[Rfam]
RNA sequence: CCCUGCGUUUGAAAGUGAUUGUGGGCUGCCCAUGCCUGGGUCAUUGAUAGUACAGGAAGAGUAAUUACCGAAAGCAUUUCUCCGCGUUUGGAGGGCCCACCCCUUCUCCUUCCAAACCCUGGAGCUUUCCCAAA
Numbered sequence: 001c002c003c004u005g006c007g008u009u010u011g012a013a014a015g016u017g018a019u020u021g022u023g024g025g026c027u028g029c030c031c032a033u034g035c036c037u038g039g040g041u042c043a044u045u046g047a048u049a050g051u052a053c054a055g056g057a058a059g060a061g062u063a064a065u066u067a068c069c070g071a072a073a074g075c076a077u078u079u080c081u082c083c084g085c086g087u088u089u090g091g092a093g094g095g096c097c098c099a100c101c102c103c104u105u106c107u108c109c110u111u112c113c114a115a116a117c118c119c120u121g122g123a124g125c126u127u128u129c130c131c132a133a134a
Stems, first nucleotide, its partner, number of pairs: 002056004007051003014045007023037004070129006086117005091111005
RNA: Small nucleolar RNA SNORA71
Organism: Rousettus aegyptiacus